Shown here is a 60-nucleotide RNA from Neodrepanis coruscans, a member of the family "Selenocysteine insertion sequence 1". The incorporation of selenocysteine into a protein sequence is directed by an in-frame UGA codon (usually a stop codon) within the coding region of the mRNA. Selenoprotein mRNAs contain a conserved secondary structure in the 3' UTR that is required for the distinction of UGA stop from UGA selenocysteine. The selenocysteine insertion sequence (SECIS) is around 60 nt in length and adopts a hairpin structure which is sufficiently well-defined and conserved to act as a computational screen for selenoprotein genes. A search with the family's covariance model found it, with a score of 38 bits. The family's consensus secondary structure is taken from published work. The source organism's lineage runs through Eukaryota, Tetrapoda, Amniota, Neoaves and Neodrepanis.
RNA sequence: UAUUUGUUAUGAUGGCCACAGCUUAAAGCACUGAGGGCUGUGACCUGAUUCUAGAAAAUA
Numbered sequence: 001u002a003u004u005u006g007u008u009a010u011g012a013u014g015g016c017c018a019c020a021g022c023u024u025a026a027a028g029c030a031c032u033g034a035g036g037g038c039u040g041u042g043a044c045c046u047g048a049u050u051c052u053a054g055a056a057a058a059u060a
Stems, first nucleotide, its partner, number of pairs: 001060005014045002017042007029033001